Rfam assigns this 191-nucleotide sequence from Enterococcus casseliflavus to the family "Enterococcus sRNA 2410". Pairs were carried over by alignment from the consensus structure, which was predicted with RNAfold. Produced as 2 transcripts on Northern blot. Expressed in mid, late exponential and early stationary phases of growth. Expression remained uniform under daptomycin exposure. NCBI's taxonomy places the organism under Bacteria, Bacillati, Bacillota, Enterococcus, Enterococcus casseliflavus. Rfam classes the family as a small RNA.

[Rfam]
RNA sequence: UUAGCUAUUUUAGAUAGGUUUGUAUUCAUGAAGGCAUGGGUACAAACGCUAAGUUUGUAUCUAUGAUGGCUAGAGCAUUUCGUAAUGAAUUCGCAGCCACGUAGAUCGUAAAAUCUAUAGUGGCUAUUUUUUAUAUUCACAUAUCGGCUCUGUCGUUAUGUAAUGUUUGAAGGUGUUCACUGUAGAUUCUU
Dot-bracket structure: (((((((...((((((.((((((((((((......))))))))))))..((....))))))))...))))))).....(..((.(.........((((((.(((..........)))..))))))...........).))..)..(((..((........))..)))........................